[Rfam]
RNA sequence: AAGUCGGUGAGAACCAUUUGAAUCAAGUAUUGGAGUUAUUCACAUGGUACUCAAAAA
Numbered sequence: 001a002a003g004u005c006g007g008u009g010a011g012a013a014c015c016a017u018u019u020g021a022a023u024c025a026a027g028u029a030u031u032g033g034a035g036u037u038a039u040u041c042a043c044a045u046g047g048u049a050c051u052c053a054a055a056a057a
Stems, first nucleotide, its partner, number of pairs: 008053004013048005019042005025036001

The record is a 57-nucleotide RNA from Rhododendron williamsianum, which matches "Plastid-ccsA-ndhD-1 3UTR RNA" in Rfam. The literature on the family includes a 2023 paper in Plant Commun by Richter et al., "Retrograde signaling in plants: A critical review focusing on the GUN pathway and beyond". Rfam 15.1 lists 1,322 matches to the family in 557 species. The source organism's lineage runs through Eukaryota, Spermatophyta, Mesangiospermae, Ericoideae and Rhododendron. By type it is a cis-regulatory element. Rfam describes the family as follows. Plastid-ccsA-ndhD-1 is a non-coding RNA (ncRNA) recognised in plastids. It was found in the three prime untranslated region (3UTR) of ccsA and ndhD genes, its 3UTR location suggests a role in transcript maturation.